[Rfam]
RNA sequence: GGUGUCCGGGGUCAUCCCCCCCUGAUCUCGGACACCGACGGCCCCGGCUUCCCCCCCGCCGGGGCCGUCCCCU
Numbered sequence: 001g002g003u004g005u006c007c008g009g010g011g012u013c014a015u016c017c018c019c020c021c022c023u024g025a026u027c028u029c030g031g032a033c034a035c036c037g038a039c040g041g042c043c044c045c046g047g048c049u050u051c052c053c054c055c056c057c058g059c060c061g062g063g064g065c066c067g068u069c070c071c072c073u
Stems, first nucleotide, its partner, number of pairs: 002035012037069012
Notes: Shown here is a 73-nucleotide RNA from Ornithinimicrobium humiphilum, a member of the family "6C RNA". Rfam links the family to the GO term sporulation. Pairs were carried over by alignment from the consensus structure, which is taken from published work. The match comes from Rfam's covariance-model search (57 bits). The literature on the family includes a 2007 paper in Nucleic Acids Res by Weinberg et al., "Identification of 22 candidate structured RNAs in bacteria using the CMfinder comparative genomics pipeline". It is annotated as a cis-regulatory element.